The record is a 120-nucleotide RNA, which matches "drum RNA" in Rfam. The family's RNA type in Rfam is small RNA. The family's consensus secondary structure is taken from published work.

RNA sequence: AGGCGUUUUAAAGCAGUGUGUCGAAUCUGGAAGUGCGGUGCUCUGCAUAGUCUUCGAUGGUUCUCCAAGCAUGCCAGAAGCCAGAUGUAGGUUGAUUUCAACCGAAGGAAAAUGGAAGAU
Numbered sequence: 001a002g003g004c005g006u007u008u009u010a011a012a013g014c015a016g017u018g019u020g021u022c023g024a025a026u027c028u029g030g031a032a033g034u035g036c037g038g039u040g041c042u043c044u045g046c047a048u049a050g051u052c053u054u055c056g057a058u059g060g061u062u063c064u065c066c067a068a069g070c071a072u073g074c075c076a077g078a079a080g081c082c083a084g085a086u087g088u089a090g091g092u093u094g095a096u097u098u099c100a101a102c103c104g105a106a107g108g109a110a111a112a113u114g115g116a117a118g119a120u
Stems, first nucleotide, its partner, number of pairs: 001053004013046004018041006027084004065115003090103004